MIR6217 microRNA precursor family: a 228-nucleotide RNA sequence from Miscanthus lutarioriparius. Rfam 15.1 lists 2,266 matches to the family in 13 species.
[Rfam]
RNA sequence: CAGCUGCCAGAAUAAGUUAUUCUAUGGCCACUUUAAGUUAUGAUAAUUACUAUUCUAAUUUACUAGAUUAAAAUAACUCCUUACUAAGUGAUUUACUAUAACAUUAUGGUAAAUAUCACCGUGAGUUAUAGUAACACAAGUAUCGUAAAUGCAUAUUCAUGUUAUCGUAAAUUAGUAUAAAUAUUAUCAUAAAUCAAGGUGGCCAUAGAAUAAGUUAUUAUGUGGCCA
Numbered sequence: 001c002a003g004c005u006g007c008c009a010g011a012a013u014a015a016g017u018u019a020u021u022c023u024a025u026g027g028c029c030a031c032u033u034u035a036a037g038u039u040a041u042g043a044u045a046a047u048u049a050c051u052a053u054u055c056u057a058a059u060u061u062a063c064u065a066g067a068u069u070a071a072a073a074u075a076a077c078u079c080c081u082u083a084c085u086a087a088g089u090g091a092u093u094u095a096c097u098a099u100a101a102c103a104u105u106a107u108g109g110u111a112a113a114u115a116u117c118a119c120c121g122u123g124a125g126u127u128a129u130a131g132u133a134a135c136a137c138a139a140g141u142a143u144c145g146u147a148a149a150u151g152c153a154u155a156u157u158c159a160u161g162u163u164a165u166c167g168u169a170a171a172u173u174a175g176u177a178u179a180a181a182u183a184u185u186a187u188c189a190u191a192a193a194u195c196a197a198g199g200u201g202g203c204c205a206u207a208g209a210a211u212a213a214g215u216u217a218u219u220a221u222g223u224g225g226c227c228a
Stems, first nucleotide, its partner, number of pairs: 003226004008222002011219005017213018038192010051179003055175009066166003070162001072160001075156001081148004088143003092139002094133009104123001109117001